[Rfam]
RNA sequence: AAUUUCUGGACUCUCCAUUUUGUAUUGCGUAUACAACAAACGCAAUACAAAAUGGAGAGACCAGAAAU
Dot-bracket structure: .((((((((.((((((((((((((((((((.........)))))))))))))))))))).))))))))